[Rfam]
RNA sequence: GCUCUCGUAGCUCAGGGGAUAGAGCAAGGGAUUUCUAAUCCCUUGGUCGUAGGUUCGAAUCCUACCGAGGGCG
Numbered sequence: 001g002c003u004c005u006c007g008u009a010g011c012u013c014a015g016g017g018g019a020u021a022g023a024g025c026a027a028g029g030g031a032u033u034u035c036u037a038a039u040c041c042c043u044u045g046g047u048c049g050u051a052g053g054u055u056c057g058a059a060u061c062c063u064a065c066c067g068a069g070g071g072c073g
Stems, first nucleotide, its partner, number of pairs: 001072007010025004027043005049065005
tRNA: a 73-nucleotide RNA sequence from Allocoleopsis franciscana. By type it is a transfer RNA. About the family: Transfer RNA (tRNA) molecules are approximately 80 nucleotides in length. Their secondary structure includes four short double-helical elements and three loops (D, anti-codon, and T loops). Further hydrogen bonds mediate the characteristic L-shaped molecular structure. tRNAs have two regions of fundamental functional importance: the anti-codon, which is responsible for specific mRNA codon recognition, and the 3' end, to which the tRNAs corresponding amino acid is attached (by aminoacyl-tRNA synthetases). tRNAs cope with the degeneracy of the genetic code in two manners: having more than one tRNA (with a specific anti-codon) for a particular amino acid; and 'wobble' base-pairing, i.e. permitting non-standard base-pairing at the 3rd anti-codon position. A search with the family's covariance model found it, with a score of 69 bits. The source organism's lineage runs through Bacteria, Bacillati, Coleofasciculales, Coleofasciculaceae and Allocoleopsis franciscana.